A member of the RNA family "nhaA-I RNA" from Massilia psychrophila, 53 nucleotides long.
By type it is a riboswitch.
The source organism's lineage runs through Bacteria, Pseudomonadati, Betaproteobacteria, Oxalobacteraceae and Massilia.
Acidobacteria, Alphaproteobacteria, Betaproteobacteria and Gammaproteobacteria, Verrucomicrobia, cand. division NC10.
RNA sequence: GGGUGAUCAUACCGACCAGGUAUGACAGGACGCGCGAUGGUCGGGCCGCCACG
Numbered sequence: 001g002g003g004u005g006a007u008c009a010u011a012c013c014g015a016c017c018a019g020g021u022a023u024g025a026c027a028g029g030a031c032g033c034g035c036g037a038u039g040g041u042c043g044g045g046c047c048g049c050c051a052c053g
Stems, first nucleotide, its partner, number of pairs: 005026001007025006035053002038051004